Notes
Rfam assigns this 99-nucleotide sequence from Amycolatopsis sulphurea to the family "Glycine riboswitch aptamer". From the family's description: This family represents the bacterial glycine riboswitch. It scores 53 bits against the family's covariance model.
RNA sequence: CGAGGCCACUCUGGAAAGAAGGCGCACCCGCGCCUCACCCAAGGUGAAAGCCGUGCCAGCGCGGUGAAACUCUCAGGUGCCCGUGACAGAGGGGGAGUU
Numbered sequence: 001c002g003a004g005g006c007c008a009c010u011c012u013g014g015a016a017a018g019a020a021g022g023c024g025c026a027c028c029c030g031c032g033c034c035u036c037a038c039c040c041a042a043g044g045u046g047a048a049a050g051c052c053g054u055g056c057c058a059g060c061g062c063g064g065u066g067a068a069a070c071u072c073u074c075a076g077g078u079g080c081c082c083g084u085g086a087c088a089g090a091g092g093g094g095g096a097g098u099u
Base pairs, nucleotide, nucleotide: 006094007093009091010090011089012088013087020035021034022033023032037078038077039076041073044072046070050065051064052063053062
Gene Ontology term of the family: glycine biosynthetic process.